Rfam assigns this 52-nucleotide RNA sequence from Albidovulum inexpectatum to the family "ffh sRNA".
[Rfam]
RNA sequence: AUCGUGCGGGAUCGCCACCAGUCAGCGCGUUGCGCCCACUGGUGCGCUUGGU
Number, nucleotide and partner (000 for none) at each position: 001a000002u000003c000004g000005u000006g000007c000008g000009g000010g000011a000012u000013c000014g000015c000016c044017a043018c042019c041020a040021g039022u038023c000024a000025g035026c034027g033028c032029g000030u000031u000032g028033c027034g026035c025036c000037c000038a022039c021040u020041g019042g018043u017044g016045c000046g000047c000048u000049u000050g000051g000052u000